[Rfam]
RNA: TPP riboswitch aptamer (THI element)
RNA sequence: AAUUAAAAUGCGGGGAGCUAUCGUGGCUGAGAGGAAGUUUAACUUCGACCCAUUGACCUGAUUCAGAUAAUGCUGACGUAGGAAUAAAAAAUUAUUUAGUU
Number, nucleotide and partner (000 for none) at each position: 001a000002a000003u000004u000005a000006a000007a000008a000009u086010g085011c000012g051013g050014g049015g000016a000017g027018c026019u025020a024021u000022c000023g000024u020025g019026g018027c017028u000029g000030a000031g000032a000033g000034g046035a045036a044037g043038u042039u000040u000041a000042a038043c037044u036045u035046c034047g000048a000049c014050c013051c012052a000053u000054u000055g000056a000057c082058c081059u080060g079061a000062u000063u076064c075065a074066g073067a000068u000069a000070a000071u000072g000073c066074u065075g064076a063077c000078g000079u060080a059081g058082g057083a000084a000085u010086a009087a000088a000089a000090a000091a000092u000093u000094a000095u000096u000097u000098a000099g000100u000101u000